[Rfam]
RNA sequence: AAAGUUUUAGGCCUUCUCUUCCCAGUUCUUCCCAGAGUCGGGAAAAGCUGGGUUGAGAGGAAAAAUAAAAAUUAAA
Numbered sequence: 001a002a003a004g005u006u007u008u009a010g011g012c013c014u015u016c017u018c019u020u021c022c023c024a025g026u027u028c029u030u031c032c033c034a035g036a037g038u039c040g041g042g043a044a045a046a047g048c049u050g051g052g053u054u055g056a057g058a059g060g061a062a063a064a065a066u067a068a069a070a071a072u073u074a075a076a
Stems, first nucleotide, its partner, number of pairs: 014059005021052005029044005
A member of the RNA family "mir-320 microRNA precursor family" from Prolemur simus, 76 nucleotides long. A search with the family's covariance model found it, with a score of 86 bits. Rfam 15.1 lists 659 matches to the family in 129 species. Rfam links the family to the GO terms cellular response to glucose stimulus, long-term synaptic potentiation and positive regulation of stem cell proliferation. On this family, see Berezikov et al., Genome Res 2006: "Many novel mammalian microRNA candidates identified by extensive cloning and RAKE analysis".